Source information: Small nucleolar RNA SNORA43: a 138-nucleotide RNA sequence from Jaculus jaculus. Its Rfam clan is "SNORA17 clan". Rfam 15.1 lists 492 matches to the family in 142 species. It scores 119 bits against the family's covariance model.
[Rfam]
RNA sequence: GCUGUCCUGGACCUUCCAGCACCUCAGAGAGAGCUAUUCUCCUGUGCCUGUGACAUCAGGGCAAAAAGUAAGUGGCUAUUUCUACACGCAGUGUUCAGAGGUCAGUGAGCACUAAGAAUGUCAUAUAGCCUUACAUUU
Numbered sequence: 001g002c003u004g005u006c007c008u009g010g011a012c013c014u015u016c017c018a019g020c021a022c023c024u025c026a027g028a029g030a031g032a033g034c035u036a037u038u039c040u041c042c043u044g045u046g047c048c049u050g051u052g053a054c055a056u057c058a059g060g061g062c063a064a065a066a067a068g069u070a071a072g073u074g075g076c077u078a079u080u081u082c083u084a085c086a087c088g089c090a091g092u093g094u095u096c097a098g099a100g101g102u103c104a105g106u107g108a109g110c111a112c113u114a115a116g117a118a119u120g121u122c123a124u125a126u127a128g129c130c131u132u133a134c135a136u137u138u
Stems, first nucleotide, its partner, number of pairs: 003063008025050003074130003083120002087116001092111006
Dot-bracket structure: ..((((((((..............(((....................))).....))))))))..........(((......((..(....((((((........))))))....)..)).......)))........
Gene Ontology terms of the family: RNA processing and nucleolus. Rfam describes the family as follows. ACA43 is a member of the H/ACA class of snoRNA that guide the sites of modification of uridines to pseudouridines.